Notes: This 255-nucleotide RNA sequence from Ureibacillus manganicus belongs to the Rfam family "BsrG". By type it is a small RNA. Taxonomically the source falls in Ureibacillus manganicus (Bacteria, Bacillota, Caryophanales, Caryophanaceae). Rfam describes the family as follows. bsrE, bsrG and bsrH pair through intermolecular interactions with antisense sRNAs. They form type I toxin/antitoxin system that includes an mRNA encoding for a short, toxic peptide (bsrE, bsrG and bsrH) and an antitoxin that is comprised of an antisense RNA. bsrG encodes a 39-amino-acid toxin, and the 180 nucleotide antisense sRNA called SR4 acts as the antitoxin (they overlap by 123 nucleotides). For this family Rfam cites "Novel small RNA-encoding genes in the intergenic regions of Bacillus subtilis" (Saito et al., Gene, 2008). Gene Ontology terms of the family: toxin activity and autolysis. The family's consensus secondary structure was predicted with WAR.
[Rfam]
RNA sequence: UGUAAUAGUUUGGUAACUCAAGGGUGGUUGGCUCACUCCUCUUUCUGACUGGGGGUGAGGCCAUGACAGUAUUCGAAGCACUGAUGCUAGCAAUUGCUUUUACUACAUUAGUACUAAUGAUUCUGUCUUUUGAACAUAAAAAAUAACCCACCUUUGAGUUGACGGCUCCGGCGGGUUGUACACUCUAGUUAGCCAACCCCUUUGAAGGGACUGACUAUUAUAUUAUGACCGAUUGAUGUGCGACCAUCAAUUGGU
Numbered sequence: 001u002g003u004a005a006u007a008g009u010u011u012g013g014u015a016a017c018u019c020a021a022g023g024g025u026g027g028u029u030g031g032c033u034c035a036c037u038c039c040u041c042u043u044u045c046u047g048a049c050u051g052g053g054g055g056u057g058a059g060g061c062c063a064u065g066a067c068a069g070u071a072u073u074c075g076a077a078g079c080a081c082u083g084a085u086g087c088u089a090g091c092a093a094u095u096g097c098u099u100u101u102a103c104u105a106c107a108u109u110a111g112u113a114c115u116a117a118u119g120a121u122u123c124u125g126u127c128u129u130u131u132g133a134a135c136a137u138a139a140a141a142a143a144u145a146a147c148c149c150a151c152c153u154u155u156g157a158g159u160u161g162a163c164g165g166c167u168c169c170g171g172c173g174g175g176u177u178g179u180a181c182a183c184u185c186u187a188g189u190u191a192g193c194c195a196a197c198c199c200c201u202u203u204g205a206a207g208g209g210a211c212u213g214a215c216u217a218u219u220a221u222a223u224u225a226u227g228a229c230c231g232a233u234u235g236a237u238g239u240g241c242g243a244c245c246a247u248c249a250a251u252u253g254g255u
Base pairs, nucleotide, nucleotide: 001222002221003220004219005218007216008215009214010196011195012194013193014192017158018157019156020155021154022153023152024151026148027147028146029145033058034057035056037055038054039053040052041051065127066126067125068124069123071121078097079096080095106119107118108117109116198209199208200207228255229254230253231252232251233250234249235248236247237246